Shown here is a 164-nucleotide RNA sequence from Plasticicumulans lactativorans, a member of the family "Manganese Mn2+ riboswitch aptamer (yybP-ykoY)". The family has 29 seed sequences and 1,126 matches in Rfam 15.1. Gene Ontology term of the family: manganese ion binding. Rfam's curators write: This RNA was originally discovered in E. coli during a large scale screen and was named SraF. The family was later found to exist upstream of related families of protein genes in many bacteria, including the the yybP and ykoK genes in B. subtilis. The specific functions of these proteins are unknown, but this structured RNA element may be involved in their genetic regulation as a riboswitch.

RNA sequence: CCUUAGGGGAGUAGCCGCCCUCCAGUGCGAGAGGGACAUGCGUCAACAGACUUGGGGUUCGCCCCAUGGCGCAUGUGGCCGAUCGGUUUGGCGAGACCUUUGGCAUCGAGCUCCGCACCCGGGUCGGGCGGGGGGCUUCAUGCCAUCGGUUAGCGCCGCCCGAC
Numbered sequence: 001c002c003u004u005a006g007g008g009g010a011g012u013a014g015c016c017g018c019c020c021u022c023c024a025g026u027g028c029g030a031g032a033g034g035g036a037c038a039u040g041c042g043u044c045a046a047c048a049g050a051c052u053u054g055g056g057g058u059u060c061g062c063c064c065c066a067u068g069g070c071g072c073a074u075g076u077g078g079c080c081g082a083u084c085g086g087u088u089u090g091g092c093g094a095g096a097c098c099u100u101u102g103g104c105a106u107c108g109a110g111c112u113c114c115g116c117a118c119c120c121g122g123g124u125c126g127g128g129c130g131g132g133g134g135g136c137u138u139c140a141u142g143c144c145a146u147c148g149g150u151u152a153g154c155g156c157c158g159c160c161c162g163a164c
Stems, first nucleotide, its partner, number of pairs: 019034003036076010053066005081164001
Dot-bracket structure: ..................(((..........))).((((((((((.......(((((....)))))))))))))))....(..................................................................................)